[Rfam]
RNA sequence: CCAGCACUUCCAUUCACUCGGAUCGUCCGGCACGUACCUGCCGGUGAAGGAGCAUGAA
Numbered sequence: 001c002c003a004g005c006a007c008u009u010c011c012a013u014u015c016a017c018u019c020g021g022a023u024c025g026u027c028c029g030g031c032a033c034g035u036a037c038c039u040g041c042c043g044g045u046g047a048a049g050g051a052g053c054a055u056g057a058a
Stems, first nucleotide, its partner, number of pairs: 010050002013048004027044006
Dot-bracket structure: .........((.((((..........((((((......))))))))))))........